Overview
Rfam assigns this 100-nucleotide RNA from Microbacterium azadirachtae to the family "mraW RNA". NCBI's taxonomy places the organism under Bacteria, Actinomycetota, Actinomycetes, Micrococcales, Microbacterium. The base pairs follow the family's consensus structure, which is taken from published work.
RNA sequence: AACGGGCCCCUGGCUGUGACUCCCAGCCGCUCCCGCCCCGGCGCACCUUCCCCGGUGCCGGGUCGAGCGGAUGGGGAUCAGGGUCAGGGACCGCUCUGAA
Dot-bracket structure: .........((((((..((.(((((.((((...((.((((((((..........)))))))).)).)))).))))).))..)))))).............